[Rfam]
RNA: ZMP/ZTP riboswitch aptamer (pfl RNA motif)
Organism: Simplicispira sp. 125
RNA sequence: AGCCGAGUACGCGACUGGCGAUAGGCGCUCUCUCCCACAGGAGACGGCCGCUGAUGUGGAAACCUGCAGGGGCCUGGCCCACUGUGAACCACCGGGGAGCGUGCCGCUGCAGGCACCUGGGUGCGCAGCGUUCCGCCGUUCGCCUGGGCAGCCCUU
Number, nucleotide and partner (000 for none) at each position: 001a000002g000003c000004c106005g105006a000007g104008u103009a102010c101011g100012c099013g000014a000015c096016u095017g144018g143019c142020g141021a140022u000023a000024g000025g000026c000027g000028c000029u000030c000031u000032c000033u000034c000035c000036c000037a000038c000039a000040g000041g000042a000043g000044a000045c000046g000047g000048c000049c000050g000051c000052u000053g000054a000055u000056g092057u091058g090059g089060a000061a000062a000063c000064c000065u000066g000067c000068a000069g000070g000071g000072g000073c000074c000075u000076g000077g000078c000079c000080c000081a000082c000083u000084g000085u000086g000087a000088a000089c059090c058091a057092c056093c000094g000095g016096g015097g000098a000099g012100c011101g010102u009103g008104c007105c005106g004107c000108u000109g000110c000111a000112g000113g000114c000115a000116c000117c000118u000119g000120g000121g000122u000123g000124c000125g000126c000127a000128g000129c000130g000131u000132u000133c151134c000135g149136c148137c147138g000139u000140u021141c020142g019143c018144c017145u000146g000147g137148g136149c135150a000151g133152c000153c000154c000155u000156u000